[Rfam]
RNA: mir-160 microRNA precursor family
RNA sequence: GUGUGCCUGGCUCCCUGUAUGCCAUUUGCAGAGCCCAUCAGAACAUUGAUGGCCUUAGUGAAUGGCGUACAAGAAGUCAAGCAUGC
Numbered sequence: 001g002u003g004u005g006c007c008u009g010g011c012u013c014c015c016u017g018u019a020u021g022c023c024a025u026u027u028g029c030a031g032a033g034c035c036c037a038u039c040a041g042a043a044c045a046u047u048g049a050u051g052g053c054c055u056u057a058g059u060g061a062a063u064g065g066c067g068u069a070c071a072a073g074a075a076g077u078c079a080a081g082c083a084u085g086c
Stems, first nucleotide, its partner, number of pairs: 001086006008079005014073001016071009027060003